Shown here is a 107-nucleotide RNA sequence from Allochromatium warmingii, a member of the family "TPP riboswitch aptamer (THI element)". NCBI's taxonomy places the organism under Bacteria, Pseudomonadati, Gammaproteobacteria, Chromatiaceae, Allochromatium. A search with the family's covariance model found it, with a score of 56 bits.
RNA sequence: AUUUGCCGCUGGCGGUGUCUGUGGGUGCCAAUCAUUCACGGACUGAGAUCACACCCUUUGAACCUGAUCCGGAUCAUGCCGGCGCAGGAAAGUCGGCGCGAGCGGUG
Number, nucleotide and partner (000 for none) at each position: 001a000002u000003u000004u000005g000006c095007c000008g093009c092010u091011g057012g056013c000014g054015g000016u051017g043018u042019c041020u040021g039022u038023g037024g036025g035026u034027g033028c000029c000030a000031a000032u000033c027034a026035u025036u024037c023038a022039c021040g020041g019042a018043c017044u000045g000046a000047g000048a000049u000050c000051a016052c000053a000054c014055c000056c012057u011058u000059u000060g000061a000062a000063c088064c087065u086066g085067a000068u000069c082070c081071g080072g079073a000074u000075c000076a000077u000078g000079c072080c071081g070082g069083c000084g000085c066086a065087g064088g063089a000090a000091a010092g009093u008094c000095g006096g000097c000098g000099c000100g000101a000102g000103c000104g000105g000106u000107g000